[Rfam]
RNA sequence: GGUCACGAGAGCCAGCGACAAGCCCCAGCUAGCUGGCCGGCAACCCUCCUUCCGCGGUGGGGUGCCCUGGGUGAGGACCGGGCCGGUCGCGCACGCGUCACGGCAAGCGCGGGUC
Numbered sequence: 001g002g003u004c005a006c007g008a009g010a011g012c013c014a015g016c017g018a019c020a021a022g023c024c025c026c027a028g029c030u031a032g033c034u035g036g037c038c039g040g041c042a043a044c045c046c047u048c049c050u051u052c053c054g055c056g057g058u059g060g061g062g063u064g065c066c067c068u069g070g071g072u073g074a075g076g077a078c079c080g081g082g083c084c085g086g087u088c089g090c091g092c093a094c095g096c097g098u099c100a101c102g103g104c105a106a107g108c109g110c111g112g113g114u115c
Base pairs, nucleotide, nucleotide: 001079002078003077004076009038011037012036013035014034015033016032021030022029039066040065041064044062045061046060048057049056082104083103084102085101086099088097089096090095
The family of this 115-nucleotide RNA from Kocuria palustris is "SAM (S-adenosyl methionine) riboswitch aptamer". A search with the family's covariance model found it, with a score of 106 bits. Rfam links the family to the GO terms regulation of gene expression and S-adenosylmethionine metabolic process. Rfam describes the family as follows. SAM-IV is a mRNA element that regulates gene expression via direct sensing of S-adenosylmethionine (SAM or AdoMet). SAM-IV riboswitches share conserved nucleotide positions with the previously described SAM-I riboswitches sequence analysis and molecular recognition experiments suggest that SAM-I and SAM-IV riboswitches share similar ligand binding sites, but have different scaffolds. NCBI's taxonomy places the organism under Bacteria, Bacillati, Actinomycetes, Micrococcaceae, Kocuria palustris.